[Rfam]
RNA: Guanidine-II riboswitch aptamer (mini-ykkC)
Organism: Persicitalea jodogahamensis
RNA sequence: CCAGGAGGACGACCUCCCCCACCAUGGGAAACUAUUCGGGACGACCCGG
Number, nucleotide and partner (000 for none) at each position: 001c000002c000003a000004g017005g016006a015007g014008g013009a000010c000011g000012a000013c008014c007015u006016c005017c004018c000019c000020c000021a000022c000023c000024a000025u000026g000027g000028g000029a000030a000031a000032c000033u000034a000035u000036u049037c048038g047039g046040g045041a000042c000043g000044a000045c040046c039047c038048g037049g036